[Rfam]
RNA sequence: UAAAGAGAUAGAGGUUGCGCAAGUUAAUAGUACUUUGUUGGAUGAAGCAAAUCAGUUGAAGACAAAGGAAAGGGGCGAGCGCCGAAAGGAUUAUUUUUGCAAGAUAAUUCUUGGGCAUGAGGUUAAGAGCUUUAUGACUGUCAUCGUAAGAUGGAGUGCUAUCAUAGUU
Numbered sequence: 001u002a003a004a005g006a007g008a009u010a011g012a013g014g015u016u017g018c019g020c021a022a023g024u025u026a027a028u029a030g031u032a033c034u035u036u037g038u039u040g041g042a043u044g045a046a047g048c049a050a051a052u053c054a055g056u057u058g059a060a061g062a063c064a065a066a067g068g069a070a071a072g073g074g075g076c077g078a079g080c081g082c083c084g085a086a087a088g089g090a091u092u093a094u095u096u097u098u099g100c101a102a103g104a105u106a107a108u109u110c111u112u113g114g115g116c117a118u119g120a121g122g123u124u125a126a127g128a129g130c131u132u133u134a135u136g137a138c139u140g141u142c143a144u145c146g147u148a149a150g151a152u153g154g155a156g157u158g159c160u161a162u163c164a165u166a167g168u169u
Stems, first nucleotide, its partner, number of pairs: 007163005017082004023076003033067007086112012113139002116136008141154005
RNA: Lysine riboswitch aptamer